This 82-nucleotide sequence from Sinocyclocheilus rhinocerous belongs to the Rfam family "Small nucleolar RNA MBII-202".

RNA sequence: UGAUGACACUUUCUCCGGAAUCUCUGCACAUCCUUGAUGACUUUUGAGCCCUUUUACAGCUGAUGACUACAUACUCUUUAGC
Numbered sequence: 001u002g003a004u005g006a007c008a009c010u011u012u013c014u015c016c017g018g019a020a021u022c023u024c025u026g027c028a029c030a031u032c033c034u035u036g037a038u039g040a041c042u043u044u045u046g047a048g049c050c051c052u053u054u055u056a057c058a059g060c061u062g063a064u065g066a067c068u069a070c071a072u073a074c075u076c077u078u079u080a081g082c
Base pairs, nucleotide, nucleotide: 002082004080005079006078
Background:
Rfam classes the family as a C/D-box small nucleolar RNA. The family's consensus secondary structure was predicted with PFOLD.